[Rfam]
RNA: Flavo-1 RNA
Organism: Flavobacterium sp. KMS
RNA sequence: GUCUAGCCCAGAUAAAAGCGACAUCCUUUUUCUGGCUUUUUCUGCCAGAAAAAGAUAUAGCGGAUAGCUGGAAAUAGC
Numbered sequence: 001g002u003c004u005a006g007c008c009c010a011g012a013u014a015a016a017a018g019c020g021a022c023a024u025c026c027u028u029u030u031u032c033u034g035g036c037u038u039u040u041u042c043u044g045c046c047a048g049a050a051a052a053a054g055a056u057a058u059a060g061c062g063g064a065u066a067g068c069u070g071g072a073a074a075u076a077g078c
Stems, first nucleotide, its partner, number of pairs: 009070003013066002018061002023056003029051008